[Rfam]
Rfam assigns this 232-nucleotide sequence from Linnemannia gamsii to the family "Small nucleolar RNA SNORA53". It scores 53 bits against the family's covariance model. Lineage of the source: Eukaryota > Mortierellomycota > Mortierellales > Mortierellaceae > Linnemannia. The base pairs follow the family's consensus structure, which was predicted with RNAalifold. Rfam describes the family as follows. The snoRNA ACA53 belongs to the H/ACA family of pseudouridylation guide snoRNAs. The family's RNA type in Rfam is H/ACA-box small nucleolar RNA.
RNA sequence: UGCGCGCUUCCUUAGAUCCGCUUUCCGGAAGGUCACAUCUUUUGCUCUGUCGACAUUCGCACUUGUGUGUUUGUCUUCGGUCGAAGGGGGCCUUCCCUCUGCCUUACGCCGAGUUUAAUGGAAAGAGUAUGAGUCAAUGGCACGUUAUAGUAAUCCCCUCACCCCUUGCCUAACCUGAUCUACAAAAAAAAAAGAGAUUCGUCUCUUUUUUUUUUGUCAGAUCAGGGUCCCU
Numbered sequence: 001u002g003c004g005c006g007c008u009u010c011c012u013u014a015g016a017u018c019c020g021c022u023u024u025c026c027g028g029a030a031g032g033u034c035a036c037a038u039c040u041u042u043u044g045c046u047c048u049g050u051c052g053a054c055a056u057u058c059g060c061a062c063u064u065g066u067g068u069g070u071u072u073g074u075c076u077u078c079g080g081u082c083g084a085a086g087g088g089g090g091c092c093u094u095c096c097c098u099c100u101g102c103c104u105u106a107c108g109c110c111g112a113g114u115u116u117a118a119u120g121g122a123a124a125g126a127g128u129a130u131g132a133g134u135c136a137a138u139g140g141c142a143c144g145u146u147a148u149a150g151u152a153a154u155c156c157c158c159u160c161a162c163c164c165c166u167u168g169c170c171u172a173a174c175c176u177g178a179u180c181u182a183c184a185a186a187a188a189a190a191a192a193a194g195a196g197a198u199u200c201g202u203c204u205c206u207u208u209u210u211u212u213u214u215u216g217u218c219a220g221a222u223c224a225g226g227g228u229c230c231c232u
Base pairs, nucleotide, nucleotide: 002145003144004143006141007140008139011133012132013131014130019127021125022124023123024122025121026120027096028095029094030093031092032091038088039087040086041085044082046080047079049078052075053074054073055072058069059068060067061066097113098112099111101109102108174226175225176224177223178222179221180220181219187215188214189213191211193206194205195204